[Rfam]
RNA sequence: AACGGACACUCUGGAAAGCGUUCCGGCGGGUUGUCGGAACCACCGAAGGGGUAACUCCGUCAACCGAUGGAGGAAAACUCUCAGGUUCCCGUGACAGAGGGGGCAUG
Numbered sequence: 001a002a003c004g005g006a007c008a009c010u011c012u013g014g015a016a017a018g019c020g021u022u023c024c025g026g027c028g029g030g031u032u033g034u035c036g037g038a039a040c041c042a043c044c045g046a047a048g049g050g051g052u053a054a055c056u057c058c059g060u061c062a063a064c065c066g067a068u069g070g071a072g073g074a075a076a077a078c079u080c081u082c083a084g085g086u087u088c089c090c091g092u093g094a095c096a097g098a099g100g101g102g103g104c105a106u107g
Stems, first nucleotide, its partner, number of pairs: 007101001009099005020040006042086003045082002049080003055073002
This 107-nucleotide RNA from Sphingopyxis alaskensis belongs to the Rfam family "Glycine riboswitch aptamer".